Rfam assigns this 203-nucleotide RNA sequence from Bradyrhizobium sp. LTSP885 to the family "Bradyrhizobiaceae sRNA BjrC174". The pairing is the family consensus, mapped onto this sequence.
RNA sequence: GUCACGGGAACGUUAGCGGAAUCAUAUUACUGCCCCACUUCCGCCCAUCGCCCGCCCCGCUGGCCUGCGAGAAGAUAAUCCUGCGUUGACCCGGUCCUUUCGGUUCCGGAUUCCUCAGCCCCCAGCCCCCCGGGGCCGUCGGGAUCGGGUCUGUUCGCAGGGGAGUUAAUCCCAACACUGGGCCAACGAAAGUUGGUCCUUUU
Dot-bracket structure: ...................................(.(...........).............................((((((..(((((((((((..(((((((((........((.....))...)))))))))..)))))))))))....))))))...)..............((((((((....))))))))....
Numbered sequence: 001g002u003c004a005c006g007g008g009a010a011c012g013u014u015a016g017c018g019g020a021a022u023c024a025u026a027u028u029a030c031u032g033c034c035c036c037a038c039u040u041c042c043g044c045c046c047a048u049c050g051c052c053c054g055c056c057c058c059g060c061u062g063g064c065c066u067g068c069g070a071g072a073a074g075a076u077a078a079u080c081c082u083g084c085g086u087u088g089a090c091c092c093g094g095u096c097c098u099u100u101c102g103g104u105u106c107c108g109g110a111u112u113c114c115u116c117a118g119c120c121c122c123c124a125g126c127c128c129c130c131c132g133g134g135g136c137c138g139u140c141g142g143g144a145u146c147g148g149g150u151c152u153g154u155u156c157g158c159a160g161g162g163g164a165g166u167u168a169a170u171c172c173c174a175a176c177a178c179u180g181g182g183c184c185a186a187c188g189a190a191a192g193u194u195g196g197u198c199c200u201u202u203u
Stems, first nucleotide, its partner, number of pairs: 036165001038050001080161006088151011101138009118126002180199008
Notes: The match comes from Rfam's covariance-model search (181 bits). For this family Rfam cites "Small RNAs of the Bradyrhizobium/Rhodopseudomonas lineage and their analysis" (Madhugiri et al., RNA Biol, 2012).